This 107-nucleotide sequence from Wenyingzhuangia fucanilytica belongs to the Rfam family "Bacteroidales small SRP".
On this family, see Ryan et al., Nat Commun 2020: "A high-resolution transcriptome map identifies small RNA regulation of metabolism in the gut microbe Bacteroides thetaiotaomicron".
RNA sequence: UGCGGCCGGGCAAGUCCUACACAACUAGCUCCCUCGGAAUCCCCCAGGGCGGGAACGCAGCAAGGGUACUUGGUUGUAGCGGUGUGAUGUAGGCAGCUUGCCCUUUU
Number, nucleotide and partner (000 for none) at each position: 001u000002g000003c000004g000005g000006c000007c000008g103009g102010g101011c100012a099013a098014g097015u096016c000017c092018u091019a090020c089021a088022c086023a085024a083025c082026u000027a000028g000029c000030u000031c000032c000033c000034u000035c000036g000037g000038a000039a000040u000041c000042c000043c000044c000045c000046a000047g000048g000049g000050c000051g000052g000053g000054a000055a000056c000057g000058c000059a000060g000061c000062a000063a000064g000065g000066g000067u000068a000069c000070u000071u000072g000073g000074u000075u000076g000077u000078a000079g000080c000081g000082g025083u024084g000085u023086g022087a000088u021089g020090u019091a018092g017093g000094c000095a000096g015097c014098u013099u012100g011101c010102c009103c008104u000105u000106u000107u000